Shown here is a 106-nucleotide sequence from Clupea harengus, a member of the family "Small nucleolar RNA SNORD46".
Rfam 15.1 lists 723 matches to the family in 611 species.
Clan: SNORD46 clan.
RNA sequence: AGUGUGGGUGAUGAAACGACGUCCUUAGGUUGGUCUGUUUUGGCCGUAUUGGUCAAUGUUUAAGACUCUCCGAUGCUAGGAUUUGUCAUAGUUACGCUGACACAUC
Numbered sequence: 001a002g003u004g005u006g007g008g009u010g011a012u013g014a015a016a017c018g019a020c021g022u023c024c025u026u027a028g029g030u031u032g033g034u035c036u037g038u039u040u041u042g043g044c045c046g047u048a049u050u051g052g053u054c055a056a057u058g059u060u061u062a063a064g065a066c067u068c069u070c071c072g073a074u075g076c077u078a079g080g081a082u083u084u085g086u087c088a089u090a091g092u093u094a095c096g097c098u099g100a101c102a103c104a105u106c
Stems, first nucleotide, its partner, number of pairs: 002105005
Rfam describes the family as follows. U40 is a C/D box small nucleolar RNA, also known as snoZ153 in plants. A reference for the family is Nicoloso et al. (1996), "Intron-encoded, antisense small nucleolar RNAs: the characterization of nine novel species points to their direct role as guides for the 2'-O-ribose methylation of rRNAs", J Mol Biol. Gene Ontology terms of the family: nucleolus and RNA processing. By type it is a C/D-box small nucleolar RNA.